[Rfam]
RNA sequence: UAGCAUGUUUCCAAGGUUUGUGACAGGUCACAGCCGUGGGACCUCCAACUGCAGGAAGAAUAACCGGAGACUCUGACAGCACAGGUCAGCAUAGCACCUGCAACCUUGCUAUUUUUCAGAGCC
Numbered sequence: 001u002a003g004c005a006u007g008u009u010u011c012c013a014a015g016g017u018u019u020g021u022g023a024c025a026g027g028u029c030a031c032a033g034c035c036g037u038g039g040g041a042c043c044u045c046c047a048a049c050u051g052c053a054g055g056a057a058g059a060a061u062a063a064c065c066g067g068a069g070a071c072u073c074u075g076a077c078a079g080c081a082c083a084g085g086u087c088a089g090c091a092u093a094g095c096a097c098c099u100g101c102a103a104c105c106u107u108g109c110u111a112u113u114u115u116u117c118a119g120a121g122c123c
Base pairs, nucleotide, nucleotide: 011039012038016035018033019032020031021030022029067122069117079109080108082100083099084098085097
Dot-bracket structure: ..........((...(.(((((......))))).)..))...........................(.(.........((.((((...........)))).......)).......)....).
Rfam assigns this 123-nucleotide RNA sequence from Erinaceus europaeus to the family "Small nucleolar RNA SNORA44". The literature on the family includes a 2001 paper in EMBO J by Huttenhofer et al., "RNomics: an experimental approach that identifies 201 candidates for novel, small, non-messenger RNAs in mouse". It scores 73 bits against the family's covariance model. Its Rfam clan is "SNORA44 clan".